[Rfam]
RNA: Ribosomal protein L20 leader
Organism: Gracilibacillus halotolerans
RNA sequence: AAAGACAAGUAGAAGCACCCGCUUCUCACCUGAUUGACACGGUAUGUAGUUGACAGGUAUAUGAUAUCCGACGAAAUGUAAUUUUAAUUGGAGAAGUGUGGGUGCAGUAUGCGUAUAAGUAUAUGCACCGCACUUUUUUUAUUGU
Numbered sequence: 001a002a003a004g005a006c007a008a009g010u011a012g013a014a015g016c017a018c019c020c021g022c023u024u025c026u027c028a029c030c031u032g033a034u035u036g037a038c039a040c041g042g043u044a045u046g047u048a049g050u051u052g053a054c055a056g057g058u059a060u061a062u063g064a065u066a067u068c069c070g071a072c073g074a075a076a077u078g079u080a081a082u083u084u085u086a087a088u089u090g091g092a093g094a095a096g097u098g099u100g101g102g103u104g105c106a107g108u109a110u111g112c113g114u115a116u117a118a119g120u121a122u123a124u125g126c127a128c129c130g131c132a133c134u135u136u137u138u139u140u141a142u143u144g145u
Stems, first nucleotide, its partner, number of pairs: 011026006028058003036051003039047002097132005103127004